[Rfam]
RNA sequence: GAUAAACCAGAUGAGAAUUCUGGUCGCCGUAAACCCAAGGUUUCCUGGGCCAGGUUCGUCCUCCCAGGGUUAGUCGGGAGCUAACACGAGGCCGUAAGGCGUAGUGGAUGCACAGCAGGUUAAAUAUUCCUGCACCGGCUGGGAUUAAGAUUGGAGUUGACGCAUCGAGAAAAGUGACUAAGUCAUCGAAAGACUGAGCCUAGGCUUCGGCCGAAGCGCAUCACCGGACAAGGUGCCGAGAAAAGACUCCCUUCGUUUCCCCAGUCGCCCGUACCGUAAACCGACACAGGUGGGUGAGUCGAAUAGACUAAGGCGCG
Numbered sequence: 001g002a003u004a005a006a007c008c009a010g011a012u013g014a015g016a017a018u019u020c021u022g023g024u025c026g027c028c029g030u031a032a033a034c035c036c037a038a039g040g041u042u043u044c045c046u047g048g049g050c051c052a053g054g055u056u057c058g059u060c061c062u063c064c065c066a067g068g069g070u071u072a073g074u075c076g077g078g079a080g081c082u083a084a085c086a087c088g089a090g091g092c093c094g095u096a097a098g099g100c101g102u103a104g105u106g107g108a109u110g111c112a113c114a115g116c117a118g119g120u121u122a123a124a125u126a127u128u129c130c131u132g133c134a135c136c137g138g139c140u141g142g143g144a145u146u147a148a149g150a151u152u153g154g155a156g157u158u159g160a161c162g163c164a165u166c167g168a169g170a171a172a173a174g175u176g177a178c179u180a181a182g183u184c185a186u187c188g189a190a191a192g193a194c195u196g197a198g199c200c201u202a203g204g205c206u207u208c209g210g211c212c213g214a215a216g217c218g219c220a221u222c223a224c225c226g227g228a229c230a231a232g233g234u235g236c237c238g239a240g241a242a243a244a245g246a247c248u249c250c251c252u253u254c255g256u257u258u259c260c261c262c263a264g265u266c267g268c269c270c271g272u273a274c275c276g277u278a279a280a281c282c283g284a285c286a287c288a289g290g291u292g293g294g295u296g297a298g299u300c301g302a303a304u305a306g307a308c309u310a311a312g313g314c315g316c317g
Base pairs, nucleotide, nucleotide: 006024007023008022009021010020011019025315026314027313028312033295034294035293036292039275040274044068045067046066047065048064049063053061054060075271076270077269078268080111081110085106086105087104089102091100092099093098115133116132117131118130119129136267137266138265139264140263141262142261143260149254150253153250154249155248156247157246158245162236163235164234165233169229174224175223176222177221179202180201183197184196185195204217205216206215207214208213281290282289297309298308299307300306
Shown here is a 317-nucleotide part of an RNA from Pedosphaera parvula, a member of the family "Bacterial large subunit ribosomal RNA". The base pairs follow the family's consensus structure, which is taken from published work. Its family is annotated with ribosome and structural constituent of ribosome in the Gene Ontology.